Shown here is a 201-nucleotide sequence from Hoskinsella hominis, a member of the family "T-box leader". On this family, see Grundy et al., J Bacteriol 1994: "Interaction between the acceptor end of tRNA and the T box stimulates antitermination in the Bacillus subtilis tyrS gene: a new role for the discriminator base". Lineage of the source: Bacteria > Bacillota > Erysipelotrichia > Erysipelotrichaceae > Hoskinsella. Rfam links the family to the GO term tRNA binding.
RNA sequence: GUACAUCCGAUGAAAAAGAGCAUGUGCAUGGAUGUUUAGAUAGAGAAGAAAACCUUGGCUGGAAGUUUUCACUAGACGAUUGCAUGAUGGACACUUUGGAGGAGUUAUCAGGAAAUGGAUAACCGUAGUUCUUGCGUUAAAGAUAAAAGUGCAUUCGUUAUGAAUGAAGUUAGGUGGUACCGCGUGAACAACGUCCUUUCA
Numbered sequence: 001g002u003a004c005a006u007c008c009g010a011u012g013a014a015a016a017a018g019a020g021c022a023u024g025u026g027c028a029u030g031g032a033u034g035u036u037u038a039g040a041u042a043g044a045g046a047a048g049a050a051a052a053c054c055u056u057g058g059c060u061g062g063a064a065g066u067u068u069u070c071a072c073u074a075g076a077c078g079a080u081u082g083c084a085u086g087a088u089g090g091a092c093a094c095u096u097u098g099g100a101g102g103a104g105u106u107a108u109c110a111g112g113a114a115a116u117g118g119a120u121a122a123c124c125g126u127a128g129u130u131c132u133u134g135c136g137u138u139a140a141a142g143a144u145a146a147a148a149g150u151g152c153a154u155u156c157g158u159u160a161u162g163a164a165u166g167a168a169g170u171u172a173g174g175u176g177g178u179a180c181c182g183c184g185u186g187a188a189c190a191a192c193g194u195c196c197u198u199u200c201a
Stems, first nucleotide, its partner, number of pairs: 007102002015097004024085005037074003048070006105122005111116001124136003152166006172197003182194004